[Rfam]
RNA sequence: GGGGUGUGCUCAGAGCAGGGGGCCUAAGGAGUGGCUUCUCUGUUUAUAACACACCCAAGAAGAGUCUGGGUUCAUUGUGACAAGGGACACACGACUUGUGGUGUUCUUCCUGUGAACAAAUGCCCUACACAG
Numbered sequence: 001g002g003g004g005u006g007u008g009c010u011c012a013g014a015g016c017a018g019g020g021g022g023c024c025u026a027a028g029g030a031g032u033g034g035c036u037u038c039u040c041u042g043u044u045u046a047u048a049a050c051a052c053a054c055c056c057a058a059g060a061a062g063a064g065u066c067u068g069g070g071u072u073c074a075u076u077g078u079g080a081c082a083a084g085g086g087a088c089a090c091a092c093g094a095c096u097u098g099u100g101g102u103g104u105u106c107u108u109c110c111u112g113u114g115a116a117c118a119a120a121u122g123c124c125c126u127a128c129a130c131a132g
Base pairs, nucleotide, nucleotide: 002056003055004054005053006052007051008050013045014044015043016042017041018040019039020038021037022035023034024033069125070124072122076118077117078116081114082113084107085106086105088100089099090098091097